[Rfam]
RNA sequence: GGGGCCGGGGAGCCCGCUUCGCCCCGUGAGGGGUGAGGAAACACCGUCCACCGGGCGACACCGCGGCUCCGCAAGGAGCACGGGUAGAACCCGUGGCUACGGCACAGAAACGACACGGCCACCGCUCUCAUGGCGAUGGGGCCGCGUGAGGCCCCCGGCGACGGGGGUCUGGUAACCGGCCGAGGACGGCGGUGGAUGCGUUGAAACGGCCGUCCCGCGGGGUGUAAGGCCUGGGGCCGGUGUGACCUGUCGCCGGACCGGUACAGGCCGCUUAGUCCAAUGCGGGCGAGAGACAGAAGACGGGUUAAUCCCCGGCCCC
Numbered sequence: 001g002g003g004g005c006c007g008g009g010g011a012g013c014c015c016g017c018u019u020c021g022c023c024c025c026g027u028g029a030g031g032g033g034u035g036a037g038g039a040a041a042c043a044c045c046g047u048c049c050a051c052c053g054g055g056c057g058a059c060a061c062c063g064c065g066g067c068u069c070c071g072c073a074a075g076g077a078g079c080a081c082g083g084g085u086a087g088a089a090c091c092c093g094u095g096g097c098u099a100c101g102g103c104a105c106a107g108a109a110a111c112g113a114c115a116c117g118g119c120c121a122c123c124g125c126u127c128u129c130a131u132g133g134c135g136a137u138g139g140g141g142c143c144g145c146g147u148g149a150g151g152c153c154c155c156c157g158g159c160g161a162c163g164g165g166g167g168u169c170u171g172g173u174a175a176c177c178g179g180c181c182g183a184g185g186a187c188g189g190c191g192g193u194g195g196a197u198g199c200g201u202u203g204a205a206a207c208g209g210c211c212g213u214c215c216c217g218c219g220g221g222g223u224g225u226a227a228g229g230c231c232u233g234g235g236g237c238c239g240g241u242g243u244g245a246c247c248u249g250u251c252g253c254c255g256g257a258c259c260g261g262u263a264c265a266g267g268c269c270g271c272u273u274a275g276u277c278c279a280a281u282g283c284g285g286g287c288g289a290g291a292g293a294c295a296g297a298a299g300a301c302g303g304g305u306u307a308a309u310c311c312c313c314g315g316c317c318c319c
Base pairs, nucleotide, nucleotide: 001319002318003317005315006314007313008312009311010310011309012287013286014285015284016283017282020035021034022033023032024031040306041305042304044303045302046301047300048299049224050223051222052221054254055253056252057251058250059249061220062219063218064217065216066079067078068077069076070075080094081093082092083091084090095215096214100212101211102210103209116200117199119195120194121193122192123191124190125189126188141180142179143178144177228269229268230267231266236262237261238260239259240258